Background: Rfam assigns this 128-nucleotide sequence to the family "Bacteriophage Diversity-Generating Retroelement RNA". It is annotated as a small RNA.
RNA sequence: GCUCUGCACUCACCAAGUGGCGGUGCAGGCCGAUCACCAAGGUGGUCAGCUUGGUUGUCCUGCUUCGGCAAACACACUACAGGGUCUGGCAAGCUGCGGAGUAGCUACAAGCGGAACGCAGAACCAGC
Dot-bracket structure: ((.(((((((..((....)).)))))))))..............................(((....))).............(.((((.....((((.....((.....))....))))...)))))
Numbered sequence: 001g002c003u004c005u006g007c008a009c010u011c012a013c014c015a016a017g018u019g020g021c022g023g024u025g026c027a028g029g030c031c032g033a034u035c036a037c038c039a040a041g042g043u044g045g046u047c048a049g050c051u052u053g054g055u056u057g058u059c060c061u062g063c064u065u066c067g068g069c070a071a072a073c074a075c076a077c078u079a080c081a082g083g084g085u086c087u088g089g090c091a092a093g094c095u096g097c098g099g100a101g102u103a104g105c106u107a108c109a110a111g112c113g114g115a116a117c118g119c120a121g122a123a124c125c126a127g128c
Stems, first nucleotide, its partner, number of pairs: 001030002004028007013020002061070003084128001086127004095120004104112002
A reference for the family is Handa et al. (2025), "RNA control of reverse transcription in a diversity-generating retroelement", Nature. It is one of the family's seed sequences.